This 183-nucleotide RNA sequence from Trinickia dinghuensis belongs to the Rfam family "RT-15 RNA". The match comes from Rfam's covariance-model search (162 bits). The family's RNA type in Rfam is small RNA. Lineage of the source: Bacteria > Pseudomonadati > Betaproteobacteria > Burkholderiales > Trinickia.
RNA sequence: AAGCGCCCGUCGCAUGGAGGUCAAGGCCGCCAUGACUGAGCGCCGUUUCAAUCUGGUCGUGCCGCUGGCUCACGAGGCCACCGCCAUGCGCAAUGAGGAUACCGACCGCCAGCGUGCGGCGCGGUCCAGCGCAGUUUCUCGGCUGAGCGAUCGGCCGGGCGACGUAGAUAGCACGAUGGUUCC
Numbered sequence: 001a002a003g004c005g006c007c008c009g010u011c012g013c014a015u016g017g018a019g020g021u022c023a024a025g026g027c028c029g030c031c032a033u034g035a036c037u038g039a040g041c042g043c044c045g046u047u048u049c050a051a052u053c054u055g056g057u058c059g060u061g062c063c064g065c066u067g068g069c070u071c072a073c074g075a076g077g078c079c080a081c082c083g084c085c086a087u088g089c090g091c092a093a094u095g096a097g098g099a100u101a102c103c104g105a106c107c108g109c110c111a112g113c114g115u116g117c118g119g120c121g122c123g124g125u126c127c128a129g130c131g132c133a134g135u136u137u138c139u140c141g142g143c144u145g146a147g148c149g150a151u152c153g154g155c156c157g158g159g160c161g162a163c164g165u166a167g168a169u170a171g172c173a174c175g176a177u178g179g180u181u182c183c
Stems, first nucleotide, its partner, number of pairs: 004042003013034005019028003057176006063083002066080005087133005097127003102124002106119004135162002138159009
Dot-bracket structure: ...(((......(((((.(((....))).))))).....)))..............((((((((.(((((.....))))).))...(((((.....(((..((..((((......))))...))))).))))).((.(((((((((....))))))))).))........)))))).......